RNA: Plant signal recognition particle RNA
RNA sequence: GCCGAGUGGAGUCACGUCUGCUUGUAACCCAUGUGGGGGCAAUAAUGUGGUUGGACAUUGGUUCAAUCUGCUGAGUUGGGCACAUUUGGUCUUGAUCACGGCCUGCCCGUUCCAAGCUAGGAGUUGAGUCAUCAAUCUUGUGCGGAAGCCUGGGUUUCGUGAUUCCUAGAGAGGAAGGCACAGCGUGAGGCUGGUUUCACAGAGCAGCGACAACUUCCCUUUCUUGGCAGUGGAAGGAUAACAAGCCGUUGCCACUUGUGUCCAUCAUAGCUCAGUGGGUCACUCCCAAUUGGACAAUCACUUUU
Numbered sequence: 001g002c003c004g005a006g007u008g009g010a011g012u013c014a015c016g017u018c019u020g021c022u023u024g025u026a027a028c029c030c031a032u033g034u035g036g037g038g039g040c041a042a043u044a045a046u047g048u049g050g051u052u053g054g055a056c057a058u059u060g061g062u063u064c065a066a067u068c069u070g071c072u073g074a075g076u077u078g079g080g081c082a083c084a085u086u087u088g089g090u091c092u093u094g095a096u097c098a099c100g101g102c103c104u105g106c107c108c109g110u111u112c113c114a115a116g117c118u119a120g121g122a123g124u125u126g127a128g129u130c131a132u133c134a135a136u137c138u139u140g141u142g143c144g145g146a147a148g149c150c151u152g153g154g155u156u157u158c159g160u161g162a163u164u165c166c167u168a169g170a171g172a173g174g175a176a177g178g179c180a181c182a183g184c185g186u187g188a189g190g191c192u193g194g195u196u197u198c199a200c201a202g203a204g205c206a207g208c209g210a211c212a213a214c215u216u217c218c219c220u221u222u223c224u225u226g227g228c229a230g231u232g233g234a235a236g237g238a239u240a241a242c243a244a245g246c247c248g249u250u251g252c253c254a255c256u257u258g259u260g261u262c263c264a265u266c267a268u269a270g271c272u273c274a275g276u277g278g279g280u281c282a283c284u285c286c287c288a289a290u291u292g293g294a295c296a297a298u299c300a301c302u303u304u305u
Stems, first nucleotide, its partner, number of pairs: 001040003004023007028037003044304002047301007056292002058289003061284001063282001065280001068278010078263007087254003091251001098249005104243002107237002110235005116228008126165007134157002137154004142149002166171001173218005184209003191202003